The family of this 58-nucleotide RNA is "Pseudomonas sRNA P26". Pairs were carried over by alignment from the consensus structure, which was predicted with RNAalifold. The family's RNA type in Rfam is non-coding RNA gene.
RNA sequence: GAAGUAGAUUGUCCAGCCUUCCUUCCAAGGCAUGGCUGGUGGUUUGAACCACCAGCCU
Dot-bracket structure: ...............(((..........)))..((((((((((....)))))))))).
Rfam describes the family as follows. This small RNA (sRNA) was computationally identified in the genome of the opportunistic pathogen Pseudomonas aeruginosa and its expression verified by northern blot analysis. A reference for the family is Livny et al. (2006), "Identification of 17 Pseudomonas aeruginosa sRNAs and prediction of sRNA-encoding genes in 10 diverse pathogens using the bioinformatic tool sRNAPredict2", Nucleic Acids Res.